[Rfam]
RNA: PyrR binding site
Organism: Fontibacillus panacisegetis
RNA sequence: AGAACCUUUAAUUCAGUCCCGUGAGGCUGGCAAGGUAACGUGAAUGUGGUUUUGGGGAACAUUACGCAUAUAUCUGCGUGGUAUUUUCCUGGGCCACAUGACAGUCAUGGUUUUAAACUGUGGCUAAAGACUCCUUGCCUGGAUCAGGCAAGGAGUUUUUUUAU
Numbered sequence: 001a002g003a004a005c006c007u008u009u010a011a012u013u014c015a016g017u018c019c020c021g022u023g024a025g026g027c028u029g030g031c032a033a034g035g036u037a038a039c040g041u042g043a044a045u046g047u048g049g050u051u052u053u054g055g056g057g058a059a060c061a062u063u064a065c066g067c068a069u070a071u072a073u074c075u076g077c078g079u080g081g082u083a084u085u086u087u088c089c090u091g092g093g094c095c096a097c098a099u100g101a102c103a104g105u106c107a108u109g110g111u112u113u114u115a116a117a118c119u120g121u122g123g124c125u126a127a128a129g130a131c132u133c134c135u136u137g138c139c140u141g142g143a144u145c146a147g148g149c150a151a152g153g154a155g156u157u158u159u160u161u162u163a164u
Base pairs, nucleotide, nucleotide: 004036005035006034007033008032013030014029015028016027017026018025055088056087057086058085059084061082062081063080064079065078066077067076068075127159128158129157130156131155132154133153134152135151136150137149138148139147140146